The family of this 67-nucleotide RNA from Parafrankia sp. EUN1f is "Transposase-2 RNA". By type it is a small RNA. Taxonomically the source falls in Parafrankia (Bacteria, Actinomycetota, Actinomycetes, Frankiaceae). The sequence is in the family's curated seed alignment.

RNA sequence: GAAGCGGGAACCGGGCACGGAACAGGCCGGUCAGGCCCGGGGUGCCCCGCCGAAAGGCGAGGCGGCA
Numbered sequence: 001g002a003a004g005c006g007g008g009a010a011c012c013g014g015g016c017a018c019g020g021a022a023c024a025g026g027c028c029g030g031u032c033a034g035g036c037c038c039g040g041g042g043u044g045c046c047c048c049g050c051c052g053a054a055a056g057g058c059g060a061g062g063c064g065g066c067a
Base pairs, nucleotide, nucleotide: 011040012039013038014037015036018029019028020027044063045062046061048059049058050057051056